Source information: This 76-nucleotide RNA from Callithrix jacchus belongs to the Rfam family "mir-320 microRNA precursor family". On this family, see Berezikov et al., Genome Res 2006: "Many novel mammalian microRNA candidates identified by extensive cloning and RAKE analysis". The organism belongs to Callithrix, within Eukaryota. Rfam links the family to the GO terms cellular response to glucose stimulus, miRNA-mediated post-transcriptional gene silencing and RISC complex. The match comes from Rfam's covariance-model search (83 bits).
RNA sequence: GCUGUCUGAGGCCUUCUCUUCCCGGUUCUUCUCGGAGUUGGGAAAAGCUGGGUUGAGAGGGUGAAAAAUUUUUUAU
Numbered sequence: 001g002c003u004g005u006c007u008g009a010g011g012c013c014u015u016c017u018c019u020u021c022c023c024g025g026u027u028c029u030u031c032u033c034g035g036a037g038u039u040g041g042g043a044a045a046a047g048c049u050g051g052g053u054u055g056a057g058a059g060g061g062u063g064a065a066a067a068a069u070u071u072u073u074u075a076u
Stems, first nucleotide, its partner, number of pairs: 014059005021052005029044006